[Rfam]
A member of the RNA family "ZMP/ZTP riboswitch aptamer (pfl RNA motif)" from Cytobacillus dafuensis, 84 nucleotides long. Pairs were carried over by alignment from the consensus structure, which is taken from published work. It scores 49 bits against the family's covariance model. Its family is annotated with one-carbon metabolic process and regulation of purine nucleotide biosynthetic process in the Gene Ontology. Taxonomically the source falls in Cytobacillus (Bacteria, Bacillati, Bacilli, Caryophanales).

RNA sequence: AGGAAAUGCAGUAACUGACGACAAUAGUGGAAUUGACCACAUGGAAACUGCAUUUUAUAUCGUCGGGUCGUCUGGGCAGAGAUA
Numbered sequence: 001a002g003g004a005a006a007u008g009c010a011g012u013a014a015c016u017g018a019c020g021a022c023a024a025u026a027g028u029g030g031a032a033u034u035g036a037c038c039a040c041a042u043g044g045a046a047a048c049u050g051c052a053u054u055u056u057a058u059a060u061c062g063u064c065g066g067g068u069c070g071u072c073u074g075g076g077c078a079g080a081g082a083u084a
Base pairs, nucleotide, nucleotide: 003056004055005054006053007052008051009050010049011048012047015044016043017072018071019070020069021068027040028039029038030037060079062077063076064075